This 92-nucleotide sequence from Romanomermis culicivorax belongs to the Rfam family "mir-31 microRNA precursor family".
The organism belongs to Romanomermis, within Eukaryota.
The match comes from Rfam's covariance-model search (56 bits).
Its family is annotated with gene silencing by miRNA and RISC complex in the Gene Ontology.
On this family, see Aravin et al., Dev Cell 2003: "The small RNA profile during Drosophila melanogaster development".
RNA sequence: GCUUCUUGAGUAGGCAAGAUGUUGGCAUAGCUGAGUUGACUCCUGUCUUUUCUACAUUCUCAGCUGUGUCCAUCGUGCCAGCUUUAGAGCAU
Dot-bracket structure: ....((.((((.((((.((((..((((((((((((.......................)))))))))))))))).)))).)))).)).....